This 81-nucleotide sequence from Triplophysa tibetana belongs to the Rfam family "mir-459 microRNA precursor family". The family's consensus secondary structure was predicted with RNAalifold. Lineage of the source: Eukaryota > Vertebrata > Teleostomi > Otophysi > Triplophysa. Its family is annotated with miRNA-mediated post-transcriptional gene silencing and RISC complex in the Gene Ontology. The match comes from Rfam's covariance-model search (96 bits).
[Rfam]
RNA sequence: CCUGUUGUUCUCAGUAACAAGGAUUCAUCCUGUUGUGAAACACAGAUCCAACAGGGAAUCUCUGUUACUGGGGGUGAAGGU
Numbered sequence: 001c002c003u004g005u006u007g008u009u010c011u012c013a014g015u016a017a018c019a020a021g022g023a024u025u026c027a028u029c030c031u032g033u034u035g036u037g038a039a040a041c042a043c044a045g046a047u048c049c050a051a052c053a054g055g056g057a058a059u060c061u062c063u064g065u066u067a068c069u070g071g072g073g074g075u076g077a078a079g080g081u
Stems, first nucleotide, its partner, number of pairs: 011071009021061006029055007037048002